[Rfam]
RNA sequence: UAUUCUUAAGUAAGAGUUACUUGUAUAAUGUCAUAAUCUGGUUGACGAGUUUCUACCCAAGACCGUAAAUCUUGGACUAUGAGUACAAUAUGCAUGGCG
Numbered sequence: 001u002a003u004u005c006u007u008a009a010g011u012a013a014g015a016g017u018u019a020c021u022u023g024u025a026u027a028a029u030g031u032c033a034u035a036a037u038c039u040g041g042u043u044g045a046c047g048a049g050u051u052u053c054u055a056c057c058c059a060a061g062a063c064c065g066u067a068a069a070u071c072u073u074g075g076a077c078u079a080u081g082a083g084u085a086c087a088a089u090a091u092g093c094a095u096g097g098c099g
Stems, first nucleotide, its partner, number of pairs: 018085008029047005057075006
RNA: Purine riboswitch aptamer
Organism: Ligilactobacillus apodemi